A member of the RNA family "Plastid-psbN 5UTR RNA" from Taxus chinensis, 61 nucleotides long. The organism belongs to Taxus, within Eukaryota. A reference for the family is Richter et al. (2023), "Retrograde signaling in plants: A critical review focusing on the GUN pathway and beyond", Plant Commun. The match comes from Rfam's covariance-model search (65 bits).

[Rfam]
RNA sequence: UGCAGUGCCCAUGAGAGGAGCAGUUCCCCAUCCAGGAGCUACUUUACCAGAUUUUGUAUUA
Numbered sequence: 001u002g003c004a005g006u007g008c009c010c011a012u013g014a015g016a017g018g019a020g021c022a023g024u025u026c027c028c029c030a031u032c033c034a035g036g037a038g039c040u041a042c043u044u045u046a047c048c049a050g051a052u053u054u055u056g057u058a059u060u061a
Base pairs, nucleotide, nucleotide: 017045018044019043020042022040023039024038025037026036027035